[Rfam]
RNA sequence: UCGCCCACAAUGCCUUCAACGGUUUCAACACGGAUGUGGCUGGGUGCAAGUGUGAGCGGACACGAAUACUCCAGCCGGUCGGCGUGACCUCCAGGUUCGUCGGAGCCCUCUUGAGGGGCAUCCUUGUUGGAGCCGUGACCGGGCGUACAGUACGUUUCCUACCCGGCUCCUCCUUUGGUCUCCUCGCGCUAACCCCGUAGCGUGUGGUUUUUAGCGGGCUCCAGGCCCGCUUUUUUUU
Number, nucleotide and partner (000 for none) at each position: 001u000002c000003g000004c000005c178006c177007a176008c000009a000010a000011u000012g000013c000014c000015u000016u000017c000018a000019a136020c135021g134022g133023u132024u131025u130026c129027a128028a127029c126030a125031c000032g123033g122034a121035u120036g119037u118038g076039g075040c074041u000042g071043g070044g069045u068046g067047c000048a000049a000050g063051u062052g061053u060054g000055a000056g000057c000058g000059g000060a053061c052062a051063c050064g000065a000066a000067u046068a045069c044070u043071c042072c000073a000074g040075c039076c038077g000078g000079u103080c102081g101082g100083c099084g000085u000086g000087a000088c000089c000090u000091c000092c000093a000094g000095g000096u000097u000098c000099g083100u082101c081102g080103g079104a000105g000106c117107c116108c115109u114110c000111u000112u000113g000114a109115g108116g107117g106118g037119c036120a035121u034122c033123c032124u000125u030126g029127u028128u027129g026130g025131a024132g023133c022134c021135g020136u019137g000138a000139c000140c000141g159142g158143g157144c000145g000146u000147a000148c000149a000150g000151u000152a000153c000154g000155u000156u000157u143158c142159c141160u000161a000162c000163c000164c000165g000166g000167c000168u000169c000170c000171u000172c000173c000174u000175u000176u007177g006178g005179u000180c000181u000182c207183c206184u000185c204186g203187c202188g201189c200190u199191a198192a000193c000194c000195c000196c000197g000198u191199a190200g189201c188202g187203u186204g185205u000206g183207g182208u000209u000210u000211u000212u000213a231214g230215c229216g228217g227218g226219c225220u224221c000222c000223a000224g220225g219226c218227c217228c216229g215230c214231u213232u000233u000234u000235u000236u000237u000238u000
RNA: Burkholderia sRNA Bp1_Cand871_SIPHT
Organism: Paraburkholderia acidisoli